Overview:
Mammalian CPEB3 ribozyme: a 75-nucleotide sequence from Crocodylus porosus. A search with the family's covariance model found it, with a score of 46 bits. About the family: The mammalian CPEB3 ribozyme is a self cleaving RNA located in the second intron of the CPEB3 gene which belongs to a family of genes regulating messenger RNA polyadenylation. Rfam 15.1 lists 5,706 matches to the family in 197 species.

RNA sequence: CCACGAAUUCGAGGCCAUGGCAGAAGUACUCACUGUGCAGCCAUGUCAGAUGCCAGUGCGUCUGUGAAUUCUACU
Numbered sequence: 001c002c003a004c005g006a007a008u009u010c011g012a013g014g015c016c017a018u019g020g021c022a023g024a025a026g027u028a029c030u031c032a033c034u035g036u037g038c039a040g041c042c043a044u045g046u047c048a049g050a051u052g053c054c055a056g057u058g059c060g061u062c063u064g065u066g067a068a069u070u071c072u073a074c075u
Base pairs, nucleotide, nucleotide: 013042014041015040019075020074022072023071024070025069026038027037028036047064048063049062050061051060052059053058
Rfam links the family to the GO term RNA nuclease activity.